Shown here is a 509-nucleotide part of an RNA from Nephila pilipes, a member of the family "Eukaryotic large subunit ribosomal RNA". Rfam links the family to the GO terms ribosome and structural constituent of ribosome.
RNA sequence: CCCUCCGAAGUUUCCCUCAGGAUAGCUGGCGCUCGAUCGAAAUUCAGUCACGAUCGGUAAAGCGAAUGAUUAGAGGCCUUGGGGCCGAAACGACCUCAACCUAUUCUCAUACUUUCAAUGGUCGUAGAGUCCUCCUUUCUCGAUCGAAGGUUGGACGGUGGAUGAGAGUGCCUAGUGGGCCACUUUUGGUAAGCAGAACUGGCGCUGUGGGAUGAACCAAACGCCGGGUUAAGGCGCCCGAUGCAGAGACGCUCAUGAGACCCCAUAAAAGGUGUUGGUUGCUCUAGACAGCAGGACGGUGGCCAUGGAAGUCGGCAUCCGCUAAGGAGUGUGUAACAACUCACCUGCCAAAGCAACUAGCCCUGAAAAUGGAUGGCGCUCCAGCGUCGAGCCCAUACCCGGCCGGUCUAAAUCGUACUCUUUAUUGUGAUUAGACCGAGUAGGAGGGUCGCGGCGGUGGCGUGGAAGGGCGUGGCGCGAGCCUGCCUGGAGCCUCCGCCGGCGCAGAU
Numbered sequence: 001c002c003c004u005c006c007g008a009a010g011u012u013u014c015c016c017u018c019a020g021g022a023u024a025g026c027u028g029g030c031g032c033u034c035g036a037u038c039g040a041a042a043u044u045c046a047g048u049c050a051c052g053a054u055c056g057g058u059a060a061a062g063c064g065a066a067u068g069a070u071u072a073g074a075g076g077c078c079u080u081g082g083g084g085c086c087g088a089a090a091c092g093a094c095c096u097c098a099a100c101c102u103a104u105u106c107u108c109a110u111a112c113u114u115u116c117a118a119u120g121g122u123c124g125u126a127g128a129g130u131c132c133u134c135c136u137u138u139c140u141c142g143a144u145c146g147a148a149g150g151u152u153g154g155a156c157g158g159u160g161g162a163u164g165a166g167a168g169u170g171c172c173u174a175g176u177g178g179g180c181c182a183c184u185u186u187u188g189g190u191a192a193g194c195a196g197a198a199c200u201g202g203c204g205c206u207g208u209g210g211g212a213u214g215a216a217c218c219a220a221a222c223g224c225c226g227g228g229u230u231a232a233g234g235c236g237c238c239c240g241a242u243g244c245a246g247a248g249a250c251g252c253u254c255a256u257g258a259g260a261c262c263c264c265a266u267a268a269a270a271g272g273u274g275u276u277g278g279u280u281g282c283u284c285u286a287g288a289c290a291g292c293a294g295g296a297c298g299g300u301g302g303c304c305a306u307g308g309a310a311g312u313c314g315g316c317a318u319c320c321g322c323u324a325a326g327g328a329g330u331g332u333g334u335a336a337c338a339a340c341u342c343a344c345c346u347g348c349c350a351a352a353g354c355a356a357c358u359a360g361c362c363c364u365g366a367a368a369a370u371g372g373a374u375g376g377c378g379c380u381c382c383a384g385c386g387u388c389g390a391g392c393c394c395a396u397a398c399c400c401g402g403c404c405g406g407u408c409u410a411a412a413u414c415g416u417a418c419u420c421u422u423u424a425u426u427g428u429g430a431u432u433a434g435a436c437c438g439a440g441u442a443g444g445a446g447g448g449u450c451g452c453g454g455c456g457g458u459g460g461c462g463u464g465g466a467a468g469g470g471c472g473u474g475g476c477g478c479g480a481g482c483c484u485g486c487c488u489g490g491a492g493c494c495u496c497c498g499c500c501g502g503c504g505c506a507g508a509u
Stems, first nucleotide, its partner, number of pairs: 001448006011024001013022003028172006048127001050125006060115001061113002067109003072104001074102003079099006086092001129156004134150004179203004184198005208219003223403005229397001233393003242390001244389001250386003270364003274361010291348005297321003302316003322326001327342001331340002404438008450504001452501006459494003468488002474483003